[Rfam]
RNA sequence: CCAUGCUAGAUGGGGAGUUGGCGGUGCCCUGUACCUGCAAUCCGCCUUAGCAGGAUUGAAUUCCGGAGUUGAGGCUUAGCCCUGUGAGGUCUGACUUUUGCAAGUGGCGAUGAGGAUUGGGUCCUGCGCAACGCAACUCCAUGAACCCCGCCAGGUCCGGGAGGAAGCAACGGUAAGUGGACACUUGCGUGUGCCGCAGGGUAGCCUGGUCUGAGUUAACUACAAGAGUUCCGCUCGGAGGGCUAUGUCGAAAUCCGGUGCAUGG
Number, nucleotide and partner (000 for none) at each position: 001c265002c264003a263004u262005g261006c260007u000008a000009g057010a056011u055012g030013g029014g028015g027016a000017g025018u024019u023020g000021g000022c000023g019024g018025u017026g000027c015028c014029c013030u012031g000032u000033a000034c054035c053036u052037g051038c050039a000040a000041u000042c000043c000044g000045c000046c000047u000048u000049a000050g038051c037052a036053g035054g034055a011056u010057u009058g000059a000060a000061u000062u000063c258064c257065g256066g255067a254068g000069u253070u252071g000072a000073g249074g248075c247076u000077u245078a000079g243080c242081c241082c240083u239084g000085u237086g236087a235088g234089g000090u000091c000092u000093g229094a000095c000096u227097u226098u225099u224100g223101c000102a000103a000104g220105u219106g217107g216108c215109g000110a000111u000112g000113a000114g212115g211116a210117u209118u208119g207120g206121g205122u204123c200124c199125u198126g197127c196128g195129c191130a190131a000132c189133g188134c187135a186136a185137c000138u181139c180140c179141a178142u177143g000144a000145a000146c000147c000148c173149c172150g171151c000152c000153a000154g000155g000156u165157c164158c163159g000160g000161g000162a000163g158164g157165a156166a000167g000168c000169a000170a000171c150172g149173g148174u000175a000176a000177g142178u141179g140180g139181a138182c000183a000184c000185u136186u135187g134188c133189g132190u130191g129192u000193g000194c000195c128196g127197c126198a125199g124200g123201g000202u000203a000204g122205c121206c120207u119208g118209g117210u116211c115212u114213g000214a000215g108216u107217u106218a000219a105220c104221u000222a000223c100224a099225a098226g097227a096228g000229u093230u000231c000232c000233g000234c088235u087236c086237g085238g000239a083240g082241g081242g080243c079244u000245a077246u000247g075248u074249c073250g000251a000252a070253a069254u067255c066256c065257g064258g063259u000260g006261c005262a004263u003264g002265g001
RNA: Bacterial large signal recognition particle RNA